[Rfam]
RNA sequence: ACCUGUUGCGGGCAGGCGAGUGGGGCCCGCAGCACCAGACAGAACACCGUGCCACGGGAACAAUCGGGGCACUUUUGGGCGUU
Numbered sequence: 001a002c003c004u005g006u007u008g009c010g011g012g013c014a015g016g017c018g019a020g021u022g023g024g025g026c027c028c029g030c031a032g033c034a035c036c037a038g039a040c041a042g043a044a045c046a047c048c049g050u051g052c053c054a055c056g057g058g059a060a061c062a063a064u065c066g067g068g069g070c071a072c073u074u075u076u077g078g079g080c081g082u083u
Base pairs, nucleotide, nucleotide: 004034005033006032007031008030009029010028011027012026013025049072050071051070052069053068055066056065
A member of the RNA family "nrdJ RNA" from Streptomyces sp. WAC 01438, 83 nucleotides long. The source organism's lineage runs through Bacteria, Actinomycetota, Kitasatosporales, Streptomycetaceae and Streptomyces. The base pairs follow the family's consensus structure, which is taken from published work.